Small nucleolar RNA SNORA41: a 135-nucleotide sequence from Ornithorhynchus anatinus.
The sequence is in the family's curated seed alignment.
RNA sequence: UUCCACAGCUACUGGUCUGCAGCUGUUGUGCUCUGUAGCAGUUGCAGUAUUCCAUCUGUGGGAAAGAAACUUGUUGACACUGUUCGUUACCCCUUUCUCGGCAACAGAAUGGGGUUUUCUGUGCGACAGACAAAU
Numbered sequence: 001u002u003c004c005a006c007a008g009c010u011a012c013u014g015g016u017c018u019g020c021a022g023c024u025g026u027u028g029u030g031c032u033c034u035g036u037a038g039c040a041g042u043u044g045c046a047g048u049a050u051u052c053c054a055u056c057u058g059u060g061g062g063a064a065a066g067a068a069a070c071u072u073g074u075u076g077a078c079a080c081u082g083u084u085c086g087u088u089a090c091c092c093c094u095u096u097c098u099c100g101g102c103a104a105c106a107g108a109a110u111g112g113g114g115u116u117u118u119c120u121g122u123g124c125g126a127c128a129g130a131c132a133a134a135u
Stems, first nucleotide, its partner, number of pairs: 003061004017047009078123003091114002093111001095109004
By type it is an H/ACA-box small nucleolar RNA. Its family is annotated with nucleolus and RNA processing in the Gene Ontology. ACA41 is a member of the H/ACA class of snoRNA that guide the sites of modification of uridines to pseudouridines.